[Rfam]
RNA sequence: CGAAGUGGAUGUCGUGAGGCCUCUGUCCGCUCACCGGCCCUGGUGCACCUUCCCCGGCACCAGGUUCGUAGCGGGCGGGCGGAGACCUGACGACAUCGACGGUCUCGG
Dot-bracket structure: .........((((((..((.((((((((((((.((((.((((((((..........)))))))).)))..).)))))))))))).))..)))))).............